RNA sequence: GGUCAAGAGCGCCAGCGUCAAGCCCCGGCUCGCUGGCCGGCAACCCUCCUCCGCGGUGGGGUGCUCCGGGUGACGACCAGGCCGCCGUGCAACCACGGCCGGCAAGCGCGGACC
Numbered sequence: 001g002g003u004c005a006a007g008a009g010c011g012c013c014a015g016c017g018u019c020a021a022g023c024c025c026c027g028g029c030u031c032g033c034u035g036g037c038c039g040g041c042a043a044c045c046c047u048c049c050u051c052c053g054c055g056g057u058g059g060g061g062u063g064c065u066c067c068g069g070g071u072g073a074c075g076a077c078c079a080g081g082c083c084g085c086c087g088u089g090c091a092a093c094c095a096c097g098g099c100c101g102g103c104a105a106g107c108g109c110g111g112a113c114c
Stems, first nucleotide, its partner, number of pairs: 001078004009038001011037006021030002039065003044061003048056002081103004085098005
RNA: SAM (S-adenosyl methionine) riboswitch aptamer